[Rfam]
Background:
The family of this 90-nucleotide RNA from Selaginella moellendorffii is "mir-160 microRNA precursor family". Taxonomically the source falls in Selaginella (Eukaryota, Viridiplantae, Selaginellaceae, Selaginelloideae).
RNA sequence: CUCUGCGUGGCUCCCCGUAAGCCAGCUAUGGAGCUUAUCAUCGUCAGCUGAUAAAUCCCCCCCAGAUGGCAUACAGGGAGCCAGGCAGAG
Number, nucleotide and partner (000 for none) at each position: 001c090002u089003c088004u087005g086006c085007g000008u083009g082010g081011c080012u079013c078014c077015c000016c000017g074018u073019a072020a000021g070022c069023c068024a067025g000026c000027u064028a000029u000030g000031g000032a000033g000034c000035u000036u000037a000038u000039c000040a000041u000042c000043g000044u000045c000046a000047g000048c000049u000050g000051a000052u000053a000054a000055a000056u000057c000058c000059c000060c000061c000062c000063c000064a027065g000066a000067u024068g023069g022070c021071a000072u019073a018074c017075a000076g000077g014078g013079a012080g011081c010082c009083a008084g000085g006086c005087a004088g003089a002090g001

Overview: A search with the family's covariance model found it, with a score of 50 bits.